[Rfam]
RNA: BsrF
Organism: Bacillus benzoevorans
RNA sequence: GCGAUGAGCUAAUUGCAUAAGUCAAUGGGAUAGCGUAUAGAUGCUAAACGGAUGAAUGUGGUCAUCCGCUCCAUUGCCGCAACGCCUAAGGCGCCCGUCUAUAUGACCGGCGC
Numbered sequence: 001g002c003g004a005u006g007a008g009c010u011a012a013u014u015g016c017a018u019a020a021g022u023c024a025a026u027g028g029g030a031u032a033g034c035g036u037a038u039a040g041a042u043g044c045u046a047a048a049c050g051g052a053u054g055a056a057u058g059u060g061g062u063c064a065u066c067c068g069c070u071c072c073a074u075u076g077c078c079g080c081a082a083c084g085c086c087u088a089a090g091g092c093g094c095c096c097g098u099c100u101a102u103a104u105g106a107c108c109g110g111c112g113c
Stems, first nucleotide, its partner, number of pairs: 013082004023076007033044002049068002052065003091113005097107003